[Rfam]
RNA sequence: CGUCACAACCACGGGAGUCCGGUGAGCCGGGCUGAGAGGAAGCGAUCCACGCUUCGACCGUCGAACCUGAUCCGGAUCAUGCCGGCGCAGGGAGGAGAGAACAUGCACGC
Numbered sequence: 001c002g003u004c005a006c007a008a009c010c011a012c013g014g015g016a017g018u019c020c021g022g023u024g025a026g027c028c029g030g031g032c033u034g035a036g037a038g039g040a041a042g043c044g045a046u047c048c049a050c051g052c053u054u055c056g057a058c059c060g061u062c063g064a065a066c067c068u069g070a071u072c073c074g075g076a077u078c079a080u081g082c083c084g085g086c087g088c089a090g091g092g093a094g095g096a097g098a099g100a101a102c103a104u105g106c107a108c109g110c
Base pairs, nucleotide, nucleotide: 009095010094011061012060013059014058017032018031019030020029021028039055040054041053042052043051066091067090068089069088072085073084074083075082

A member of the RNA family "TPP riboswitch aptamer (THI element)" from Microbacterium lacticum, 110 nucleotides long. The match comes from Rfam's covariance-model search (58 bits).